[Rfam]
RNA sequence: CGUCUUUGGAGUCCAGUGACCAUUUUAAACGGGGCGUAACCGAAAAGCCUUAUGAGUAGGAGUAUA
Numbered sequence: 001c002g003u004c005u006u007u008g009g010a011g012u013c014c015a016g017u018g019a020c021c022a023u024u025u026u027a028a029a030c031g032g033g034g035c036g037u038a039a040c041c042g043a044a045a046a047g048c049c050u051u052a053u054g055a056g057u058a059g060g061a062g063u064a065u066a
Base pairs, nucleotide, nucleotide: 007022008021009020033049034048035047040060041059
A member of the RNA family "DUF805 RNA" from Christiangramia forsetii, 66 nucleotides long.
By type it is a cis-regulatory element.
The family's consensus secondary structure is taken from published work.
NCBI's taxonomy places the organism under Bacteria, Flavobacteriia, Flavobacteriaceae, Christiangramia, Christiangramia forsetii.
It is one of the family's seed sequences.